A member of the RNA family "ZMP/ZTP riboswitch aptamer (pfl RNA motif)" from Rhodopseudomonas palustris, 82 nucleotides long. The organism belongs to Rhodopseudomonas palustris, within Bacteria. Gene Ontology terms of the family: one-carbon metabolic process and regulation of purine nucleotide biosynthetic process.
[Rfam]
RNA sequence: CCUCGCUCGCGCGACUGGCGACCUUGGAUGGAGCACCAUCGGGAAGCGCGGGCCAUAUCUGCCGCGCGCCUGGGCAUCGUAU
Dot-bracket structure: ..(.((((((((..(([[[[.......((((....))))..))..)))))))).)....((((...]]]]..))))......